The record is a 67-nucleotide RNA sequence from Flavobacterium sp. GT3R68, which matches "Flavo-1 RNA" in Rfam.
[Rfam]
RNA sequence: UUUUAGCCCCGAUAGGAACGGCAUCCCGCGCUUUUUUGCGCGGAUACAGUGGAUAGCGGGAUCAGCU
Numbered sequence: 001u002u003u004u005a006g007c008c009c010c011g012a013u014a015g016g017a018a019c020g021g022c023a024u025c026c027c028g029c030g031c032u033u034u035u036u037u038g039c040g041c042g043g044a045u046a047c048a049g050u051g052g053a054u055a056g057c058g059g060g061a062u063c064a065g066c067u
Base pairs, nucleotide, nucleotide: 009059010058011057013055014054018050019049023045024044025043026042028041029040030039031038
Pairs were carried over by alignment from the consensus structure, which is taken from published work. The organism belongs to Flavobacterium, within Bacteria. Rfam classes the family as a small RNA.